[Rfam]
RNA: RAGATH-18 RNA
RNA sequence: CCUAUGGAGUGUAUAAGAACUUGUGAGUAGUAUAUCAGAAAUGAUUACAAAAGCAUACACGAUGAAAUAGGAA
Numbered sequence: 001c002c003u004a005u006g007g008a009g010u011g012u013a014u015a016a017g018a019a020c021u022u023g024u025g026a027g028u029a030g031u032a033u034a035u036c037a038g039a040a041a042u043g044a045u046u047a048c049a050a051a052a053g054c055a056u057a058c059a060c061g062a063u064g065a066a067a068u069a070g071g072a073a
Base pairs, nucleotide, nucleotide: 001071002070003069004068005067009060010059011058012057013056022055023054024053030048031047032046035044036043